[Rfam]
Shown here is an 86-nucleotide RNA, a member of the family "Small nucleolar RNA R44/J54/Z268 family". Its Rfam clan is "SNORD74 clan". Rfam classes the family as a C/D-box small nucleolar RNA.
RNA sequence: UGCGCAGAUGAUGACAAGAUAGACAGGGACUCAGCACUCCGAAGGGAGAAUGUUGAUUUGUCUAAUGGGAAAAUCUCUGAUGCGUU
Number, nucleotide and partner (000 for none) at each position: 001u000002g085003c084004g083005c082006a081007g000008a000009u000010g000011a000012u000013g000014a000015c000016a000017a000018g000019a000020u000021a000022g000023a000024c000025a000026g000027g000028g000029a000030c000031u000032c000033a000034g000035c000036a000037c000038u000039c000040c000041g000042a000043a000044g000045g000046g000047a000048g000049a000050a000051u000052g000053u000054u000055g000056a000057u000058u000059u000060g000061u000062c000063u000064a000065a000066u000067g000068g000069g000070a000071a000072a000073a000074u000075c000076u000077c000078u000079g000080a000081u006082g005083c004084g003085u002086u000